RNA sequence: GUAUGCCUGGCUCCCUGUAUGCCAUAUGCUGAGCCCAUCGAGUAUCGAUGACCUCCGUGGAUGGCGUAUGAGGAGCCAUGCAUAU
Numbered sequence: 001g002u003a004u005g006c007c008u009g010g011c012u013c014c015c016u017g018u019a020u021g022c023c024a025u026a027u028g029c030u031g032a033g034c035c036c037a038u039c040g041a042g043u044a045u046c047g048a049u050g051a052c053c054u055c056c057g058u059g060g061a062u063g064g065c066g067u068a069u070g071a072g073g074a075g076c077c078a079u080g081c082a083u084a085u
Stems, first nucleotide, its partner, number of pairs: 001085006008078007016070009027059003
RNA: mir-160 microRNA precursor family